Source information:
The record is a 117-nucleotide sequence from Listeria booriae, which matches "SAM riboswitch aptamer (S box leader)" in Rfam. It scores 76 bits against the family's covariance model. From the family's description: The SAM riboswitch is found upstream of a number of genes which code for proteins involved in methionine or cysteine biosynthesis in Gram-positive bacteria. The SAM riboswitch acts at the level of transcription termination control. The literature on the family includes a 1998 paper in Mol Microbiol by Grundy and Henkin, "The S box regulon: a new global transcription termination control system for methionine and cysteine biosynthesis genes in gram-positive bacteria". The source organism's lineage runs through Bacteria, Bacillati, Bacillota, Bacilli and Listeria.
[Rfam]
RNA sequence: AUCUUAUCAAGAGUGGUGGAGGGAUAUGCCCGAAGAAACCCGGCAACCUAAGUGGAUGAACGUGUCCAUUGCAAGGUGCUAAAUCAUACAGAGCGACAAAGCUUUGAGAGAUGAGAG
Number, nucleotide and partner (000 for none) at each position: 001a000002u116003c115004u114005u113006a112007u111008c110009a000010a000011g000012a000013g041014u000015g040016g039017u038018g000019g000020a000021g031022g030023g029024a000025u088026a087027u086028g085029c023030c022031c021032g000033a000034a000035g000036a000037a000038a017039c016040c015041c013042g080043g079044c078045a077046a000047c076048c075049u000050a000051a070052g069053u068054g067055g066056a065057u000058g000059a000060a000061c000062g000063u000064g000065u056066c055067c054068a053069u052070u051071g000072c000073a000074a000075g048076g047077u045078g044079c043080u042081a000082a000083a000084u109085c028086a027087u026088a025089c106090a105091g104092a103093g102094c101095g000096a000097c000098a000099a000100a000101g094102c093103u092104u091105u090106g089107a000108g000109a084110g008111a007112u006113g005114a004115g003116a002117g000